RNA: mir-46/mir-47/mir-281 microRNA precursor family
RNA sequence: AAGGAGAGCCGUUCUGUGACUGUUGAACUUCGGGAACACUGUCAUGGAGUUGCUCUCUUU
Numbered sequence: 001a002a003g004g005a006g007a008g009c010c011g012u013u014c015u016g017u018g019a020c021u022g023u024u025g026a027a028c029u030u031c032g033g034g035a036a037c038a039c040u041g042u043c044a045u046g047g048a049g050u051u052g053c054u055c056u057c058u059u060u
Base pairs, nucleotide, nucleotide: 001060002059003058004057005056007054008053009052012048013047014046018043019042020041022039023038